This 58-nucleotide sequence from Mycobacterium manitobense belongs to the Rfam family "Actino-pnp RNA".

RNA sequence: CACGGUCUUCGGUAGUGGCUGCCGGACAGGAAUCCGGCAGCUUCGAUCGACGGCCGUA
Numbered sequence: 001c002a003c004g005g006u007c008u009u010c011g012g013u014a015g016u017g018g019c020u021g022c023c024g025g026a027c028a029g030g031a032a033u034c035c036g037g038c039a040g041c042u043u044c045g046a047u048c049g050a051c052g053g054c055c056g057u058a
Stems, first nucleotide, its partner, number of pairs: 002057006009050005017042010
Overview:
Pairs were carried over by alignment from the consensus structure, which is taken from published work. It is annotated as a cis-regulatory element. Lineage of the source: Bacteria > Actinomycetota > Mycobacteriales > Mycobacteriaceae > Mycobacterium.